Small nucleolar RNA Z278: a 116-nucleotide RNA sequence from Helianthus annuus. A reference for the family is Chen et al. (2003), "The high diversity of snoRNAs in plants: identification and comparative study of 120 snoRNA genes from Oryza sativa", Nucleic Acids Res. Rfam links the family to the GO terms RNA processing and nucleolus. The family's RNA type in Rfam is C/D-box small nucleolar RNA. snoZ278 is a C/D box small nucleolar RNA. Its methylation guide targets have not been reported.
RNA sequence: UUCGAUGAUGAUAUAAUCCAAUUUUAUGAGGUACGUGGAUCCAAGACCCUGUUUUACAGGGAGAACCACUUGGUUGAAGCUGUAUUUCAAAUGGUAUUACUGGAUUUUACUGAGGA
Numbered sequence: 001u002u003c004g005a006u007g008a009u010g011a012u013a014u015a016a017u018c019c020a021a022u023u024u025u026a027u028g029a030g031g032u033a034c035g036u037g038g039a040u041c042c043a044a045g046a047c048c049c050u051g052u053u054u055u056a057c058a059g060g061g062a063g064a065a066c067c068a069c070u071u072g073g074u075u076g077a078a079g080c081u082g083u084a085u086u087u088c089a090a091a092u093g094g095u096a097u098u099a100c101u102g103g104a105u106u107u108u109a110c111u112g113a114g115g116a
Base pairs, nucleotide, nucleotide: 001116002115003114047061048060049059050058051057